[Rfam]
A member of the RNA family "SAM riboswitch aptamer (S box leader)" from Nesterenkonia alkaliphila, 90 nucleotides long. It scores 67 bits against the family's covariance model.
RNA sequence: UACCCAUCAAGAGCGACUGAGGGAUCUGGCCCGAUGACGUCGCAGCAACCGGCUCUGUGAGCAAGGUGCUAACGCCAGAACCGAUGGAGA
Numbered sequence: 001u002a003c004c005c006a007u008c009a010a011g012a013g014c015g016a017c018u019g020a021g022g023g024a025u026c027u028g029g030c031c032c033g034a035u036g037a038c039g040u041c042g043c044a045g046c047a048a049c050c051g052g053c054u055c056u057g058u059g060a061g062c063a064a065g066g067u068g069c070u071a072a073c074g075c076c077a078g079a080a081c082c083g084a085u086g087g088a089g090a
Stems, first nucleotide, its partner, number of pairs: 001090001004087005013043005021032003026078004044070004049066002052062004074082001